[Rfam]
RNA sequence: AAAGUUGAUAGAGGCGCGGUGCGGAUGAGUAGCCGGCGGGAGGGGACACCCUGGGAACCCGGCAAAAGGCCAAACCGCCGAAACGGCUGGGCGGGUGCGCCCCGCCGUUGGGCAGGGGGAGAAGAUCUCCCUGACUCCUGUUUUUUAACAGAGGCGCUAUCGGUGAU
Numbered sequence: 001a002a003a004g005u006u007g008a009u010a011g012a013g014g015c016g017c018g019g020u021g022c023g024g025a026u027g028a029g030u031a032g033c034c035g036g037c038g039g040g041a042g043g044g045g046a047c048a049c050c051c052u053g054g055g056a057a058c059c060c061g062g063c064a065a066a067a068g069g070c071c072a073a074a075c076c077g078c079c080g081a082a083a084c085g086g087c088u089g090g091g092c093g094g095g096u097g098c099g100c101c102c103c104g105c106c107g108u109u110g111g112g113c114a115g116g117g118g119g120a121g122a123a124g125a126u127c128u129c130c131c132u133g134a135c136u137c138c139u140g141u142u143u144u145u146u147a148a149c150a151g152a153g154g155c156g157c158u159a160u161c162g163g164u165g166a167u
Stems, first nucleotide, its partner, number of pairs: 006162006016078005023071002032063005038058001082109006089102005110136002113133008138151005
A member of the RNA family "Lysine riboswitch aptamer" from Bittarella massiliensis, 167 nucleotides long. Gene Ontology term of the family: lysine biosynthetic process. Lineage of the source: Bacteria > Bacillota > Clostridia > Oscillospiraceae > Bittarella (ex Durand et al. 2017).